[Rfam]
RNA sequence: UGUGCAGUGGCAGGAAAGGUGCUGUGCUGUAUCUGGGUAAAUUUCUUGACGCUCACAGU
Number, nucleotide and partner (000 for none) at each position: 001u000002g056003u055004g054005c000006a053007g052008u051009g050010g000011c048012a047013g046014g045015a044016a043017a042018g000019g000020u000021g038022c037023u036024g000025u000026g000027c000028u000029g000030u000031a000032u000033c000034u000035g000036g023037g022038u021039a000040a000041a000042u017043u016044u015045c014046u013047u012048g011049a000050c009051g008052c007053u006054c004055a003056c002057a000058g000059u000

mir-7398 microRNA precursor family: a 59-nucleotide RNA from Sarcophilus harrisii. Taxonomically the source falls in Sarcophilus (Eukaryota, Metazoa, Craniata, Amniota). The match comes from Rfam's covariance-model search (60 bits).